[Rfam]
RNA sequence: GGCACAAACUUGAAGUAGAGUAGUUUAGUAGGGUCAGCCAGUCCUACUAACCUACUCUUCCUCGAAUUUGGGCCC
Numbered sequence: 001g002g003c004a005c006a007a008a009c010u011u012g013a014a015g016u017a018g019a020g021u022a023g024u025u026u027a028g029u030a031g032g033g034u035c036a037g038c039c040a041g042u043c044c045u046a047c048u049a050a051c052c053u054a055c056u057c058u059u060c061c062u063c064g065a066a067u068u069u070g071g072g073c074c075c
Base pairs, nucleotide, nucleotide: 001074002073003072005070006069007068008067011064012063013062015060017058018057019056020055021054022053023052025050026049027048028047029046030045032043033042034041
RNA: mir-5928 microRNA precursor family
Organism: Haemonchus placei